[Rfam]
RNA sequence: UGACGGAAGGACACCACAAGGAGUGGAGUGUGCGGCUUAAUUUGACUCAACGCGGGGCAGCUUACCAGGGCCGGAUGCGCGGGAGAUUGGCGGCGGAGCGCCCCCGAGAUUGCGCAGGGAGUGGUGCAUGGCCGUUUGCAACACGUGGGGUGACCUGUCUGGUUGAUUCCGACAACGCGUGAGGCCUGGGGUGCAGCAGGGGCUGUGCGACGGGCGGCGGCAAGCUGCAGGAGGGCAGGCGAAAACAGGUCAGUGAUGCCCUCAGAUGCUCUGGGCUGCACGCGCACUACAAUGGCGCGGCGAGCGGGAGUGCCGGGAGGCGCGGGCGAGGCCGUGGCGCAGCAGGGAUGGGGGCCUGGAAGGGUGCCCUGAACGAGGAAUUCCUAGUAGCCGCGGGUCACCAAGCCGCGGCGAAUGAGUCCCUGUUCUUUGUACACACCGCCCGUCACUACCUAAGAUGGAUGUGCAGGCGAGGAGGCUGGGCAGGCACCCGAGCCUGUGCAACUAGAUAAGGUAUAAGUCGUAACAAGGCUGCAGUAGGUGAACCUGCGGCAGGAUCACUA
Number, nucleotide and partner (000 for none) at each position: 001u436002g435003a433004c432005g431006g000007a430008a429009g428010g427011a426012c425013a424014c000015c000016a420017c419018a000019a000020g384021g383022a382023g381024u380025g290026g000027a288028g287029u286030g285031u284032g283033c282034g281035g279036c278037u000038u000039a000040a000041u056042u055043u054044g053045a000046c000047u000048c000049a000050a000051c000052g000053c044054g043055g042056g041057g000058c000059a000060g000061c000062u000063u000064a000065c274066c273067a272068g271069g270070g269071c268072c000073g000074g000075a000076u116077g115078c114079g113080c112081g111082g000083g000084a000085g000086a000087u107088u106089g105090g104091c000092g000093g000094c000095g000096g000097a000098g000099c000100g000101c000102c000103c000104c090105c089106g088107a087108g000109a000110u000111u081112g080113c079114g078115c077116a076117g000118g000119g000120a262121g261122u000123g260124g259125u258126g257127c000128a000129u256130g254131g250132c249133c248134g246135u245136u244137u243138g000139c000140a000141a180142c179143a000144c177145g176146u175147g156148g155149g154150g000151u000152g000153a000154c149155c148156u147157g000158u000159c000160u171161g170162g169163u000164u000165g000166a000167u000168u000169c162170c161171g160172a000173c000174a000175a146176c145177g144178c000179g142180u141181g000182a000183g000184g000185c000186c238187u237188g236189g000190g000191g000192u000193g000194c000195a000196g000197c000198a000199g000200g000201g208202g000203c000204u000205g000206u000207g000208c201209g000210a000211c231212g000213g000214g228215c227216g226217g225218c224219g000220g000221c000222a000223a000224g218225c217226u216227g215228c214229a000230g000231g211232a000233g000234g000235g000236c188237a187238g186239g000240c000241g000242a000243a137244a136245a135246c134247a000248g133249g132250u131251c000252a000253g000254u130255g000256a129257u126258g125259c124260c123261c121262u120263c000264a000265g000266a000267u000268g071269c070270u069271c068272u067273g066274g065275g000276c000277u000278g036279c035280a000281c034282g033283c032284g031285c030286a029287c028288u027289a000290c025291a000292a000293u000294g338295g000296c336297g335298c334299g333300g332301c331302g000303a000304g000305c000306g000307g000308g000309a000310g000311u000312g000313c000314c000315g000316g000317g000318a000319g000320g000321c000322g000323c000324g000325g000326g000327c000328g000329a000330g000331g301332c300333c299334g298335u297336g296337g000338c294339g000340c000341a000342g000343c000344a000345g374346g000347g000348a000349u000350g369351g368352g367353g000354g365355c364356c363357u000358g000359g000360a000361a000362g000363g356364g355365u354366g000367c352368c351369c350370u000371g000372a000373a000374c345375g000376a000377g000378g000379a000380a024381u023382u022383c021384c020385u000386a000387g000388u000389a000390g412391c411392c410393g409394c408395g407396g406397g000398u000399c000400a000401c000402c000403a000404a000405g000406c396407c395408g394409c393410g392411g391412c390413g000414a000415a000416u000417g000418a000419g017420u016421c000422c000423c000424u013425g012426u011427u010428c009429u008430u007431u005432g004433u003434a000435c002436a001437c000438a000439c000440c000441g527442c000443c000444c523445g522446u000447c520448a000449c000450u516451a515452c514453c513454u512455a000456a510457g000458a000459u507460g506461g505462a000463u503464g502465u501466g500467c499468a498469g497470g496471c495472g000473a000474g492475g491476a000477g000478g488479c487480u486481g000482g000483g000484c000485a000486g480487g479488c478489a000490c000491c475492c474493g000494a000495g471496c470497c469498u468499g467500u466501g465502c464503a463504a000505c461506u460507a459508g000509a000510u456511a000512a454513g453514g452515u451516a450517u000518a000519a000520g447521u000522c445523g444524u000525a000526a000527c441528a000529a000530g000531g000532c555533u554534g553535c552536a000537g550538u549539a548540g547541g546542u000543g000544a000545a000546c541547c540548u539549g538550c537551g000552g535553c534554a533555g532556g000557a000558u000559c000560a000561c000562u000563a000
RNA: Microsporidia small subunit ribosomal RNA, nucleotides 838 to 1400